[Rfam]
RNA sequence: AGAGUAGGCGCAGGCAGUUGCAGCCAGCUUUUACAGCUGGUCUGAGGAAAGUCUGGACUCCCGAAAGACCAAACUUGCUGGGUAACGCCCAGUGCGAGCGAUCGUGAGGAUAGUGCCACAGAAAGAUACCGCCUUUUUCAGCGAUCGGCGAACAGUGACCAGUGACCAAAUGAUAACUGAUAACUGAUAACUGACAACUGAAAAGGGUAAGGGUGCAAAGGUGCGGUAAGAGCGCACCAGCAGCAUCGAGAGGUGCUGGCUCGGUAAACCCCGGUUGGGAGCAAGGUCGGAGGAACUACGGUUGGUCUUUUACCAGUUCCGCUAUUGGUGUACCGCUAGAGGUGUCUGGUAACAGGCAUCCCAGAUAGAUAACUGCCUUCUGUAUGUAGAGAUGCGAUCGCGUUGAUGCAGCAGAAAACAGAAUCCAGCUUAUGUCCUGCUCUCUCA
Numbered sequence: 001a002g003a004g005u006a007g008g009c010g011c012a013g014g015c016a017g018u019u020g021c022a023g024c025c026a027g028c029u030u031u032u033a034c035a036g037c038u039g040g041u042c043u044g045a046g047g048a049a050a051g052u053c054u055g056g057a058c059u060c061c062c063g064a065a066a067g068a069c070c071a072a073a074c075u076u077g078c079u080g081g082g083u084a085a086c087g088c089c090c091a092g093u094g095c096g097a098g099c100g101a102u103c104g105u106g107a108g109g110a111u112a113g114u115g116c117c118a119c120a121g122a123a124a125g126a127u128a129c130c131g132c133c134u135u136u137u138u139c140a141g142c143g144a145u146c147g148g149c150g151a152a153c154a155g156u157g158a159c160c161a162g163u164g165a166c167c168a169a170a171u172g173a174u175a176a177c178u179g180a181u182a183a184c185u186g187a188u189a190a191c192u193g194a195c196a197a198c199u200g201a202a203a204a205g206g207g208u209a210a211g212g213g214u215g216c217a218a219a220g221g222u223g224c225g226g227u228a229a230g231a232g233c234g235c236a237c238c239a240g241c242a243g244c245a246u247c248g249a250g251a252g253g254u255g256c257u258g259g260c261u262c263g264g265u266a267a268a269c270c271c272c273g274g275u276u277g278g279g280a281g282c283a284a285g286g287u288c289g290g291a292g293g294a295a296c297u298a299c300g301g302u303u304g305g306u307c308u309u310u311u312a313c314c315a316g317u318u319c320c321g322c323u324a325u326u327g328g329u330g331u332a333c334c335g336c337u338a339g340a341g342g343u344g345u346c347u348g349g350u351a352a353c354a355g356g357c358a359u360c361c362c363a364g365a366u367a368g369a370u371a372a373c374u375g376c377c378u379u380c381u382g383u384a385u386g387u388a389g390a391g392a393u394g395c396g397a398u399c400g401c402g403u404u405g406a407u408g409c410a411g412c413a414g415a416a417a418a419c420a421g422a423a424u425c426c427a428g429c430u431u432a433u434g435u436c437c438u439g440c441u442c443u444c445u446c447a
Base pairs, nucleotide, nucleotide: 001443002442003441004440005439006438007437008436010435011434012433013377014376015375016374017373018372019371021044022043023042024040025039026038027037028036029035049431050430051429053428054427055426056425057424058281059280060279061278067313072276073275074274076273077272078092079091080090081089082088093107094105095104096103097102108271109270113269114268115265116264117263129212130211131208132207133206134205135204136203137202138201139200140199141198220238221237222236223235224234225233240260241258242257243256244255245254246253247252285334286333287332295325299321300320304319305318307316308315341360342359343358344357345356346355347354348353